[Rfam]
RNA sequence: CUAUAUGUACCCUGUAGAUCCGAAUUUGUGUAAAGGAUUCGGGGCCACAAAUUCGUCUCUAGGGGAAUAUGUAGU
Numbered sequence: 001c002u003a004u005a006u007g008u009a010c011c012c013u014g015u016a017g018a019u020c021c022g023a024a025u026u027u028g029u030g031u032a033a034a035g036g037a038u039u040c041g042g043g044g045c046c047a048c049a050a051a052u053u054c055g056u057c058u059c060u061a062g063g064g065g066a067a068u069a070u071g072u073a074g075u
Stems, first nucleotide, its partner, number of pairs: 002073006010065003016060003021055010
Dot-bracket structure: .((((((..(((...(((..((((((((((...............))))))))))..)))..)))..))))))..
mir-10 microRNA precursor family: a 75-nucleotide sequence from Leucopsar rothschildi. For this family Rfam cites "An extensive class of small RNAs in Caenorhabditis elegans" (Lee and Ambros, Science, 2001). The match comes from Rfam's covariance-model search (69 bits).